[Rfam]
This 203-nucleotide RNA from a Kiloniellaceae bacterium belongs to the Rfam family "Manganese Mn2+ riboswitch aptamer (yybP-ykoY)". The source organism's lineage runs through Bacteria, Pseudomonadati, Pseudomonadota, Alphaproteobacteria and Kiloniellaceae. The literature on the family includes a 2015 paper in Mol Cell by Dambach et al., "The ubiquitous yybP-ykoY riboswitch is a manganese-responsive regulatory element".
RNA sequence: CCUAUCACCUUGCCGGUUCGUAGGGGAGUAGUCGCCUCGGCUGCACGAGGCCCCGCAUCAACAGACUUGGCUCGGCAGUCUCUUUGCCGGCCAUGGUGCGGGGAGAUCCUUUGGAUUUGGCGAGACCUAUGACGUUCCGUCGGGCGCAAGGAGCCGGCCCGGGCGGCGCGUCAUAGCGUGGGUUCGCCGGCUCCGGAGAGAUC
Numbered sequence: 001c002c003u004a005u006c007a008c009c010u011u012g013c014c015g016g017u018u019c020g021u022a023g024g025g026g027a028g029u030a031g032u033c034g035c036c037u038c039g040g041c042u043g044c045a046c047g048a049g050g051c052c053c054c055g056c057a058u059c060a061a062c063a064g065a066c067u068u069g070g071c072u073c074g075g076c077a078g079u080c081u082c083u084u085u086g087c088c089g090g091c092c093a094u095g096g097u098g099c100g101g102g103g104a105g106a107u108c109c110u111u112u113g114g115a116u117u118u119g120g121c122g123a124g125a126c127c128u129a130u131g132a133c134g135u136u137c138c139g140u141c142g143g144g145c146g147c148a149a150g151g152a153g154c155c156g157g158c159c160c161g162g163g164c165g166g167c168g169c170g171u172c173a174u175a176g177c178g179u180g181g182g183u184u185c186g187c188c189g190g191c192u193c194c195g196g197a198g199a200g201a202u203c
Stems, first nucleotide, its partner, number of pairs: 036049003051103010068093005105203004109198007